Bacterial RNase P class A: a 368-nucleotide RNA from Galliscardovia ingluviei. The match comes from Rfam's covariance-model search (299 bits). Pairs were carried over by alignment from the consensus structure, which is taken from published work.
RNA sequence: CGAGACCUCUUGAUGAUCGCGACUUCAGGCAGUAGUUUGAGGUUGAGGAACUUCCGGGCUCCGCAGAGCACAAUGGCGGAUAACGUCCGCCCAGGGUGACCUGAGAGAUAGCGCAACAGAGAAUAGACCGCCGCUUGAAUCAUUGAUGCAAGCGGUAAGGGUGAAACGGCGGUGUAAGAGACCACCGGGUUGCUGGUAACAGGAACCGCAUGGCAAGCCUCAUUGGGAGCAAGGUCAAGCAGAAGGCGUUAAGAGCUGCUCGCUCGUGUCUUCGGGUAGACUGCUAGAGCUUAUUGGUAACAAUAAGUCGAGAUGGAUGAUCAUCCGGCGCAAGCCGACAGAACCCGGGGUAUAAGAGGUCUCCACUU
Numbered sequence: 001c002g003a004g005a006c007c008u009c010u011u012g013a014u015g016a017u018c019g020c021g022a023c024u025u026c027a028g029g030c031a032g033u034a035g036u037u038u039g040a041g042g043u044u045g046a047g048g049a050a051c052u053u054c055c056g057g058g059c060u061c062c063g064c065a066g067a068g069c070a071c072a073a074u075g076g077c078g079g080a081u082a083a084c085g086u087c088c089g090c091c092c093a094g095g096g097u098g099a100c101c102u103g104a105g106a107g108a109u110a111g112c113g114c115a116a117c118a119g120a121g122a123a124u125a126g127a128c129c130g131c132c133g134c135u136u137g138a139a140u141c142a143u144u145g146a147u148g149c150a151a152g153c154g155g156u157a158a159g160g161g162u163g164a165a166a167c168g169g170c171g172g173u174g175u176a177a178g179a180g181a182c183c184a185c186c187g188g189g190u191u192g193c194u195g196g197u198a199a200c201a202g203g204a205a206c207c208g209c210a211u212g213g214c215a216a217g218c219c220u221c222a223u224u225g226g227g228a229g230c231a232a233g234g235u236c237a238a239g240c241a242g243a244a245g246g247c248g249u250u251a252a253g254a255g256c257u258g259c260u261c262g263c264u265c266g267u268g269u270c271u272u273c274g275g276g277u278a279g280a281c282u283g284c285u286a287g288a289g290c291u292u293a294u295u296g297g298u299a300a301c302a303a304u305a306a307g308u309c310g311a312g313a314u315g316g317a318u319g320a321u322c323a324u325c326c327g328g329c330g331c332a333a334g335c336c337g338a339c340a341g342a343a344c345c346c347g348g349g350g351u352a353u354a355a356g357a358g359g360u361c362u363c364c365a366c367u368u
Base pairs, nucleotide, nucleotide: 002363003362004361005360006359007358008357009356010355012325013324014323015322016321017320018319020045021044022043023042024041025040026039027038028037050351051350052349054348055347056346057345058344059229060228061227062226066261067260068259069258071225072224073223074222075221076090077089078088079087080086091105092103093102094101095100106220107219111218112217113214114213128160129159130156131155132154133153134152135151136150137149168186169185171183172182173181187209188207189206190205191204193202194201195200233282234281235280236279242273243272244271245270246269247268253265254264255263256262289308290307291306292305293304294303295302296301